[Rfam]
RNA sequence: CCCGCCACGCCUCUCCACGAUGCGCACCAGGGCGGGU
Numbered sequence: 001c002c003c004g005c006c007a008c009g010c011c012u013c014u015c016c017a018c019g020a021u022g023c024g025c026a027c028c029a030g031g032g033c034g035g036g037u
Stems, first nucleotide, its partner, number of pairs: 001036006008024003
Shown here is a 37-nucleotide RNA sequence, a member of the family "abiF RNA". Rfam classes the family as a small RNA. Rfam describes the family as follows. Actinobacteria, Bacteroidetes, Clostridia, Proteobacteria, one Clostridia phage.